The family of this 139-nucleotide RNA from Leptocoma aspasia is "Small nucleolar RNA SNORA79". A reference for the family is Schattner et al. (2006), "A computational screen for mammalian pseudouridylation guide H/ACA RNAs", RNA. Rfam's curators write: ACA65 (SNORA79) is a member of the H/ACA class of snoRNAs that guide the sites of modification of uridines to pseudouridines. This snoRNA was identified by computational screening and its expression in mouse experimentally verified by Northern blot and primer extension analysis. Rfam 15.1 lists 944 matches to the family in 375 species. NCBI's taxonomy places the organism under Eukaryota, Chordata, Gnathostomata, Passeriformes, Leptocoma.

RNA sequence: UGACCCGCGUUCCCCCCGUCGCCGCCAGUCGCGGGCGCUCGGGGUUUUAGCGGUGUCGCAGAGCAGCGGCGGCUCCUUCUUCACCUGGCGGAGCGAGGAGCCUUCGUGGCUCCGCCGGAUUUUGGGGGGCCGCACAAAU
Number, nucleotide and partner (000 for none) at each position: 001u058002g057003a056004c055005c053006c052007g051008c050009g000010u000011u000012c000013c000014c044015c043016c042017c041018g040019u000020c037021g036022c035023c034024g000025c000026c000027a000028g000029u000030c000031g000032c000033g000034g023035g022036c021037g020038c000039u000040c018041g017042g016043g015044g014045u000046u000047u000048u000049a000050g008051c007052g006053g005054u000055g004056u003057c002058g001059c000060a000061g000062a000063g000064c000065a000066g000067c000068g000069g000070c000071g131072g130073c129074u128075c127076c126077u000078u000079c000080u000081u000082c000083a000084c000085c118086u117087g116088g115089c114090g113091g112092a111093g110094c109095g000096a000097g000098g105099a104100g000101c000102c000103u000104u099105c098106g000107u000108g000109g094110c093111u092112c091113c090114g089115c088116c087117g086118g085119a000120u000121u000122u000123u000124g000125g000126g076127g075128g074129g073130c072131c071132g000133c000134a000135c000136a000137a000138a000139u000